Overview:
Shown here is a 184-nucleotide RNA from Actinotalea fermentans, a member of the family "c-di-AMP riboswitch aptamer (ydaO/yuaA leader)". Lineage of the source: Bacteria > Actinomycetota > Micrococcales > Cellulomonadaceae > Actinotalea.
[Rfam]
RNA sequence: AGACGGCACGCCGAGUCCUGCCGCCCGUCUCGUCCCUCCACGUCAGUGCGGCAGGAGCGGGGGACCCAACUUCCGGGCGCGCAAGCGUCCUCGGGGUGAAGCCGGGGUCCUUCUCGAAGGGCCCGGCCGGGUGUUCUCCCACCCGAAUCCGACAGCUCACCUCGUAGGCGGCAGGAGAGGUACU
Numbered sequence: 001a002g003a004c005g006g007c008a009c010g011c012c013g014a015g016u017c018c019u020g021c022c023g024c025c026c027g028u029c030u031c032g033u034c035c036c037u038c039c040a041c042g043u044c045a046g047u048g049c050g051g052c053a054g055g056a057g058c059g060g061g062g063g064a065c066c067c068a069a070c071u072u073c074c075g076g077g078c079g080c081g082c083a084a085g086c087g088u089c090c091u092c093g094g095g096g097u098g099a100a101g102c103c104g105g106g107g108u109c110c111u112u113c114u115c116g117a118a119g120g121g122c123c124c125g126g127c128c129g130g131g132u133g134u135u136c137u138c139c140c141a142c143c144c145g146a147a148u149c150c151g152a153c154a155g156c157u158c159a160c161c162u163c164g165u166a167g168g169c170g171g172c173a174g175g176a177g178a179g180g181u182a183c184u
Stems, first nucleotide, its partner, number of pairs: 009170004016056009057165006067093001094150003102126004129144004
Dot-bracket structure: ........((((...(((((((((.......................)))))))))((((((....(.........................)(((.....((((.................))))..((((........))))...))).........)))))).))))..............
Rfam links the family to the GO terms regulation of gene expression and cyclic-di-AMP binding.